Overview: Hepatitis C virus stem-loop SL8670: a 92-nucleotide RNA sequence from Orthohepacivirus hominis. It is one of the family's seed sequences. By type it is a cis-regulatory element.
RNA sequence: AGAGUGAUGGCGUCGAUGAGGACAGAACAGCCUUGAGAGCCUUCACGGAGGCUAUGACCAGGUAUUCUGCUCCACCCGGAGAUGCUCCACAG
Numbered sequence: 001a002g003a004g005u006g007a008u009g010g011c012g013u014c015g016a017u018g019a020g021g022a023c024a025g026a027a028c029a030g031c032c033u034u035g036a037g038a039g040c041c042u043u044c045a046c047g048g049a050g051g052c053u054a055u056g057a058c059c060a061g062g063u064a065u066u067c068u069g070c071u072c073c074a075c076c077c078g079g080a081g082a083u084g085c086u087c088c089a090c091a092g
Base pairs, nucleotide, nucleotide: 006087007086010083013080014079018075020073021072026071028069030066032062033061034060035059038053039052040051041050042049043048